[Rfam]
Rfam assigns this 68-nucleotide sequence from Astyanax mexicanus to the family "mir-29 microRNA precursor family". Its family is annotated with RISC complex and gene silencing by miRNA in the Gene Ontology.
RNA sequence: GGCUGACCGAUUUCUUUUGGUGUUCAGAGUCUUUUGGGGUUUCUAGCACCAUUUGAAAUCGGUUACAA
Numbered sequence: 001g002g003c004u005g006a007c008c009g010a011u012u013u014c015u016u017u018u019g020g021u022g023u024u025c026a027g028a029g030u031c032u033u034u035u036g037g038g039g040u041u042u043c044u045a046g047c048a049c050c051a052u053u054u055g056a057a058a059u060c061g062g063u064u065a066c067a068a
Stems, first nucleotide, its partner, number of pairs: 004065001005063001007062008018051005026044003
Rfam's curators write: This family represents the microRNA (miRNA) precursors mir-29.